[Rfam]
RNA: S15-Flavobacteria ribosomal protein leader
Organism: Ochrovirga pacifica
RNA sequence: UAUCUUUGCCGUCCGAUUACCAAAGAGGUAAUUUGCAUUAUAAUUAUUUACAAAAAUAUUAGUAUG
Numbered sequence: 001u002a003u004c005u006u007u008g009c010c011g012u013c014c015g016a017u018u019a020c021c022a023a024a025g026a027g028g029u030a031a032u033u034u035g036c037a038u039u040a041u042a043a044u045u046a047u048u049u050a051c052a053a054a055a056a057u058a059u060u061a062g063u064a065u066g
Stems, first nucleotide, its partner, number of pairs: 015033006
Dot-bracket structure: ..............((((((.......)))))).................................